Notes
The family of this 164-nucleotide RNA sequence from Bacillus sp. FJAT-26390 is "c-di-AMP riboswitch aptamer (ydaO/yuaA leader)". The match comes from Rfam's covariance-model search (99 bits).

RNA sequence: UAACUAUUAUCGCUGAAUUUUUCAUUUGAAAAAGCGGGGGAACCAAUCGCGGACGGCAAAACAGCUUGUUCGCAUGGGGUGAAUCCGAAGCCAAUUCACUUCGGUAGGGUGUCUCUCUAGCCCGAAUCCGGCAGCUAACCUCGCAAGCGAAUUUGAGGAGAGAU
Numbered sequence: 001u002a003a004c005u006a007u008u009a010u011c012g013c014u015g016a017a018u019u020u021u022u023c024a025u026u027u028g029a030a031a032a033a034g035c036g037g038g039g040g041a042a043c044c045a046a047u048c049g050c051g052g053a054c055g056g057c058a059a060a061a062c063a064g065c066u067u068g069u070u071c072g073c074a075u076g077g078g079g080u081g082a083a084u085c086c087g088a089a090g091c092c093a094a095u096u097c098a099c100u101u102c103g104g105u106a107g108g109g110u111g112u113c114u115c116u117c118u119a120g121c122c123c124g125a126a127u128c129c130g131g132c133a134g135c136u137a138a139c140c141u142c143g144c145a146a147g148c149g150a151a152u153u154u155g156a157g158g159a160g161a162g163a164u
Stems, first nucleotide, its partner, number of pairs: 011149004018033005034144006044076002077129003085104006107123004

From the family's description: This family represents a conserved RNA structure found upstream of the ydaO and yuaA genes in Bacillus subtilis and related genes in other bacteria. The ydaO/yuaA element is thought to act as a genetic 'off' switch for the ydaO and yuaA genes in its native state. It is believed that the element may be triggered during osmotic shock leading to activation of ydaO, a predicted amino acid transporter gene, and members of the yuaA-yubG operon which code for KtrA and KtrB K+ transporters. The organism belongs to Bacillus, within Bacteria.